The family of this 102-nucleotide sequence is "Glycine riboswitch aptamer".
RNA sequence: UUGAUUGUAUUGGGAGAGAGUGACGAAUGUCGCCGCCGACGGAGCAAGUUCCAUAAAAUCCUUGGAAUUAAUCUCUCAGGUAAAAAGAACCAUUACAUGACG
Numbered sequence: 001u002u003g004a005u006u007g008u009a010u011u012g013g014g015a016g017a018g019a020g021u022g023a024c025g026a027a028u029g030u031c032g033c034c035g036c037c038g039a040c041g042g043a044g045c046a047a048g049u050u051c052c053a054u055a056a057a058a059u060c061c062u063u064g065g066a067a068u069u070a071a072u073c074u075c076u077c078a079g080g081u082a083a084a085a086a087g088a089a090c091c092a093u094u095a096c097a098u099g100a101c102g
Base pairs, nucleotide, nucleotide: 006097007096008095009094011092012091013090020033021032022031023030035081036080037079038077039076042075043074044073048068049067050066051065052064053063